[Rfam]
RNA sequence: AAGGUCCGAUGAGUAGUCGCUGCCUGGUGGUAAUAGCCAGGGAGAGGAAAGUCCGGGCUUCACAGGGCAAGGAUGCCGGCUAACGGCCGGUGGAGGUAACUCCAAGGAUAGUGCAACAGAGAUAUACCGCCCGCUUAUGCGGGUAAGGGUGGAAAGGCGGUGUAAGAGACCACCGUAUCGCUGGUAACAGCGGUAGCCAUGUAAACCCCAUCCGAAGCAAGUUCUAAACGGUGCGUACGCGGCCCGCCAGCACCAGGUUGAACGCUUGAGGCUGUUGGCAACAGCAGUCCUAGAUAGAUGACUACUUUAAAAGACAUAACCCGGCUCACAGUCGGGCCUUUUUU
Numbered sequence: 001a002a003g004g005u006c007c008g009a010u011g012a013g014u015a016g017u018c019g020c021u022g023c024c025u026g027g028u029g030g031u032a033a034u035a036g037c038c039a040g041g042g043a044g045a046g047g048a049a050a051g052u053c054c055g056g057g058c059u060u061c062a063c064a065g066g067g068c069a070a071g072g073a074u075g076c077c078g079g080c081u082a083a084c085g086g087c088c089g090g091u092g093g094a095g096g097u098a099a100c101u102c103c104a105a106g107g108a109u110a111g112u113g114c115a116a117c118a119g120a121g122a123u124a125u126a127c128c129g130c131c132c133g134c135u136u137a138u139g140c141g142g143g144u145a146a147g148g149g150u151g152g153a154a155a156g157g158c159g160g161u162g163u164a165a166g167a168g169a170c171c172a173c174c175g176u177a178u179c180g181c182u183g184g185u186a187a188c189a190g191c192g193g194u195a196g197c198c199a200u201g202u203a204a205a206c207c208c209c210a211u212c213c214g215a216a217g218c219a220a221g222u223u224c225u226a227a228a229c230g231g232u233g234c235g236u237a238c239g240c241g242g243c244c245c246g247c248c249a250g251c252a253c254c255a256g257g258u259u260g261a262a263c264g265c266u267u268g269a270g271g272c273u274g275u276u277g278g279c280a281a282c283a284g285c286a287g288u289c290c291u292a293g294a295u296a297g298a299u300g301a302c303u304a305c306u307u308u309a310a311a312a313g314a315c316a317u318a319a320c321c322c323g324g325c326u327c328a329c330a331g332u333c334g335g336g337c338c339u340u341u342u343u344u
Base pairs, nucleotide, nucleotide: 001340002339003338004337005336006335007334008333009332010331011329012306013305014304015303016302017301018300020044021043023041024040025039026038027037028036050326051325053324054323055322056321057320058217059216060215061214066245067244071213072212073211074210075209076090077089078088079087080086091105092103093102094101095100106208107207111206112205113202114201115200127148128147129144130143131142132141133140134139156174157173159171160170161169175197176195177194178193179192180191181190182189183188221263222262223261224260230254231253232252233251234250239247240246270289271288272287273286274285275284276283277282
RNA: Bacterial RNase P class A
Organism: Pseudobutyrivibrio xylanivorans